[Rfam]
RNA sequence: AAAAAGUAGGCAUGACUAAGUCGCUUUGGAUAAAAGCGUCUGCUAAAUGGCAUAUA
Numbered sequence: 001a002a003a004a005a006g007u008a009g010g011c012a013u014g015a016c017u018a019a020g021u022c023g024c025u026u027u028g029g030a031u032a033a034a035a036g037c038g039u040c041u042g043c044u045a046a047a048u049g050g051c052a053u054a055u056a
Base pairs, nucleotide, nucleotide: 013045014043017042018041022038023037024036025035026034027033
The family of this 56-nucleotide RNA sequence from Coregonus sp. 'balchen' is "UnaL2 LINE 3' element". About the family: The eel long interspersed element (LINE) UnaL2 and its partner short interspersed element (SINE) share a conserved 3' tail containing a stem-loop that is critical for their retrotransposition. The match comes from Rfam's covariance-model search (62 bits).